A member of the RNA family "FMN riboswitch aptamer (RFN element)" from Lacrimispora xylanisolvens, 115 nucleotides long. Rfam describes the family as follows. The RFN element is a highly conserved domain that is found frequently in the 5'-untranslated regions of prokaryotic mRNAs that encode for flavin mononucleotide (FMN) biosynthesis and transport proteins.

RNA sequence: AACAAUCUUCAGGGCAGGGUGUAAUUCCCUACCGGUGGUAUAGCCCACGAACCGCAAGGUAUGAUUCGGUGUAACUCCGAAGCCGACAGUAAAGUCUGGAUGAAAGAAGAUGAUG
Numbered sequence: 001a002a003c004a005a006u007c008u009u010c011a012g013g014g015c016a017g018g019g020u021g022u023a024a025u026u027c028c029c030u031a032c033c034g035g036u037g038g039u040a041u042a043g044c045c046c047a048c049g050a051a052c053c054g055c056a057a058g059g060u061a062u063g064a065u066u067c068g069g070u071g072u073a074a075c076u077c078c079g080a081a082g083c084c085g086a087c088a089g090u091a092a093a094g095u096c097u098g099g100a101u102g103a104a105a106g107a108a109g110a111u112g113a114u115g
Stems, first nucleotide, its partner, number of pairs: 005111006017029003031095002033085002035048004043083002053059001065081005087098003

Overview: The family has 146 seed sequences and 6,230 matches in Rfam 15.1.